Eukaryotic large subunit ribosomal RNA: a 319-nucleotide part of an RNA from Macrostomum lignano.
RNA sequence: GAGUCUAACAUGUGCGCGAGUCAUGGGGAUUCUACGAAACCCAAAGGCGCAGUGAAAGUAAAGGCCUGCUUCUCGUAGGCUGAGGUGGGAUCUCGUGCAUCGCGAUUGGCGAGCGCACCACCGGCCCGUCCUAUCUGUCUCUGUCAGUGGGGCGGCGCAAGAGCGUACACGUUGGGACCCGAAAGAUGGUGAACUAUGCUUGCGCAGCUCGAAGUCAGUGGAAACACUGAUGGAGGAGCGCAGCGUUUCUGACGUGCAAAUCGAUCGUCAAACGUGAGUAUAGGGGCGAAAGACUAAUCGAACCAUCUAGUAGCUGGUU
Numbered sequence: 001g002a003g004u005c006u007a008a009c010a011u012g013u014g015c016g017c018g019a020g021u022c023a024u025g026g027g028g029a030u031u032c033u034a035c036g037a038a039a040c041c042c043a044a045a046g047g048c049g050c051a052g053u054g055a056a057a058g059u060a061a062a063g064g065c066c067u068g069c070u071u072c073u074c075g076u077a078g079g080c081u082g083a084g085g086u087g088g089g090a091u092c093u094c095g096u097g098c099a100u101c102g103c104g105a106u107u108g109g110c111g112a113g114c115g116c117a118c119c120a121c122c123g124g125c126c127c128g129u130c131c132u133a134u135c136u137g138u139c140u141c142u143g144u145c146a147g148u149g150g151g152g153c154g155g156c157g158c159a160a161g162a163g164c165g166u167a168c169a170c171g172u173u174g175g176g177a178c179c180c181g182a183a184a185g186a187u188g189g190u191g192a193a194c195u196a197u198g199c200u201u202g203c204g205c206a207g208c209u210c211g212a213a214g215u216c217a218g219u220g221g222a223a224a225c226a227c228u229g230a231u232g233g234a235g236g237a238g239c240g241c242a243g244c245g246u247u248u249c250u251g252a253c254g255u256g257c258a259a260a261u262c263g264a265u266c267g268u269c270a271a272a273c274g275u276g277a278g279u280a281u282a283g284g285g286g287c288g289a290a291a292g293a294c295u296a297a298u299c300g301a302a303c304c305a306u307c308u309a310g311u312a313g314c315u316g317g318u319u
Stems, first nucleotide, its partner, number of pairs: 005175005011169007020048003026042003030038001052059002084122005092113005124158002126155003129151003178317002181314001185307006194283011207239004214231007243268003248264002251262002285295002
Record summary:
The source organism's lineage runs through Eukaryota, Lophotrochozoa, Platyhelminthes, Rhabditophora and Macrostomum.